[Rfam]
RNA sequence: ACCUGACUAUCGCAUCCCGCGGUAGACACUAGCCACGACAGGAGAACACUACAUG
Number, nucleotide and partner (000 for none) at each position: 001a000002c042003c041004u040005g039006a000007c025008u024009a023010u022011c021012g000013c000014a000015u000016c000017c000018c000019g000020c000021g011022g010023u009024a008025g007026a000027c000028a000029c000030u000031a000032g000033c000034c000035a000036c000037g000038a000039c005040a004041g003042g002043a000044g000045a000046a000047c000048a000049c000050u000051a000052c000053a000054u000055g000
The record is a 55-nucleotide RNA, which matches "Mu-gpT-DE RNA" in Rfam. The base pairs follow the family's consensus structure, which is taken from published work. Rfam classes the family as a small RNA.